RNA sequence: UAAUCUCAGCUGGCAACUGUGAGCAGUUCAGUGUUCCCUCUCACAGUGGCUACUGGGGUUCUG
Numbered sequence: 001u002a003a004u005c006u007c008a009g010c011u012g013g014c015a016a017c018u019g020u021g022a023g024c025a026g027u028u029c030a031g032u033g034u035u036c037c038c039u040c041u042c043a044c045a046g047u048g049g050c051u052a053c054u055g056g057g058g059u060u061c062u063g
Stems, first nucleotide, its partner, number of pairs: 002060008012051003015047001018045006
RNA: mir-216 microRNA precursor family